A member of the RNA family "Small nucleolar RNA SNORA25" from Rhinolophus ferrumequinum, 129 nucleotides long. Rfam describes the family as follows. ACA25 is a member of the H/ACA class of snoRNA that guide the sites of modification of uridines to pseudouridines. The match comes from Rfam's covariance-model search (91 bits). Lineage of the source: Eukaryota > Dipnotetrapodomorpha > Theria > Yinpterochiroptera > Rhinolophus. Rfam links the family to the GO terms RNA processing and nucleolus.
RNA sequence: AGGCAUUUCAAAGAGGACUUGCAGGAAUGUGAAACCAGGAGCUCUUAACACCAGUGACCUAAGACUGAAUUUCCCCACAGAAUGCCAUGGUCACUCAAUAGUGCUGUGUGUUCCUGAGGAGAUGGAGCC
Numbered sequence: 001a002g003g004c005a006u007u008u009c010a011a012a013g014a015g016g017a018c019u020u021g022c023a024g025g026a027a028u029g030u031g032a033a034a035c036c037a038g039g040a041g042c043u044c045u046u047a048a049c050a051c052c053a054g055u056g057a058c059c060u061a062a063g064a065c066u067g068a069a070u071u072u073c074c075c076c077a078c079a080g081a082a083u084g085c086c087a088u089g090g091u092c093a094c095u096c097a098a099u100a101g102u103g104c105u106g107u108g109u110g111u112u113c114c115u116g117a118g119g120a121g122a123u124g125g126a127g128c129c
Stems, first nucleotide, its partner, number of pairs: 002059002004056003013046004018041003022038001025036001072122002075119002079115002082112001087107004092103004